[Rfam]
RNA sequence: UGACCAUUUCUUUAUCGGCACCGCCGGUAAAGGGACAGAAUGCCAUACGGACAGCUAGGUCAAAUGCCGG
Dot-bracket structure: (((((.(((((((((((((...)))))))))))))......................)))))........

Source information:
Rfam assigns this 70-nucleotide RNA sequence to the family "Streptococcus sRNA SpF59 (ldcC RNA)". For this family Rfam cites "Control of virulence by small RNAs in Streptococcus pneumoniae" (Mann et al., PLoS Pathog, 2012).